[Rfam]
RNA sequence: GUGACAGAAGAGAGUGAGCACACAUGGUACUCUUUCUUGCAUGUCCAAUUCAUGCUCGAAGCUCUGUGUGCUCACUCUCUGUCUGUCAC
Numbered sequence: 001g002u003g004a005c006a007g008a009a010g011a012g013a014g015u016g017a018g019c020a021c022a023c024a025u026g027g028u029a030c031u032c033u034u035u036c037u038u039g040c041a042u043g044u045c046c047a048a049u050u051c052a053u054g055c056u057c058g059a060a061g062c063u064c065u066g067u068g069u070g071c072u073c074a075c076u077c078u079c080u081g082u083c084u085g086u087c088a089c
Stems, first nucleotide, its partner, number of pairs: 001089008010079012023066002
RNA: mir-156 microRNA precursor family
Organism: Rhodamnia argentea